[Rfam]
RNA sequence: GCGGAUGGCCGGAUGACCGCGGCGGCAACGUCGAGGAAAGUCCGGACUCCAUGAAGGCACGGUGCCGGGUAACGCCCGGCGGGGGCAACCCCAGGGAAAGCGCCACAGAGAAGAGACCGCCCAUGCAUGCAUGGGCAAGGGUGAAACGGUGGGGUAAGAGCCCACCGCGGGGCUGGUAACAGUCCCGGCACGGCAAGCCCCACCGGGAGCAAUGCCGAAUAGGGACCGCGCGUCGCAAGACAGGGCCGCCUUUGCCCCAGCAGGUCCGGGUUGGCAGCCAGAUCCCGCCGGCAACGGCGGGGCCAGAGGAAUGGUCAUCGAAGGGGGCGACCCCGGAACAAAAUCCGGCUUACAGGCCAUCCGCGCAA
Numbered sequence: 001g002c003g004g005a006u007g008g009c010c011g012g013a014u015g016a017c018c019g020c021g022g023c024g025g026c027a028a029c030g031u032c033g034a035g036g037a038a039a040g041u042c043c044g045g046a047c048u049c050c051a052u053g054a055a056g057g058c059a060c061g062g063u064g065c066c067g068g069g070u071a072a073c074g075c076c077c078g079g080c081g082g083g084g085g086c087a088a089c090c091c092c093a094g095g096g097a098a099a100g101c102g103c104c105a106c107a108g109a110g111a112a113g114a115g116a117c118c119g120c121c122c123a124u125g126c127a128u129g130c131a132u133g134g135g136c137a138a139g140g141g142u143g144a145a146a147c148g149g150u151g152g153g154g155u156a157a158g159a160g161c162c163c164a165c166c167g168c169g170g171g172g173c174u175g176g177u178a179a180c181a182g183u184c185c186c187g188g189c190a191c192g193g194c195a196a197g198c199c200c201c202a203c204c205g206g207g208a209g210c211a212a213u214g215c216c217g218a219a220u221a222g223g224g225a226c227c228g229c230g231c232g233u234c235g236c237a238a239g240a241c242a243g244g245g246c247c248g249c250c251u252u253u254g255c256c257c258c259a260g261c262a263g264g265u266c267c268g269g270g271u272u273g274g275c276a277g278c279c280a281g282a283u284c285c286c287g288c289c290g291g292c293a294a295c296g297g298c299g300g301g302g303c304c305a306g307a308g309g310a311a312u313g314g315u316c317a318u319c320g321a322a323g324g325g326g327g328c329g330a331c332c333c334c335g336g337a338a339c340a341a342a343a344u345c346c347g348g349c350u351u352a353c354a355g356g357c358c359a360u361c362c363g364c365g366c367a368a
Stems, first nucleotide, its partner, number of pairs: 001364010011353001012319007020033005038351003042348005047209004055252003060205005065079005080094001081092004095200002100198002102194003117140002119136007148166006167189001168187008213276004223267005243257004283302008
RNA: Bacterial RNase P class A
Organism: Paracoccus denitrificans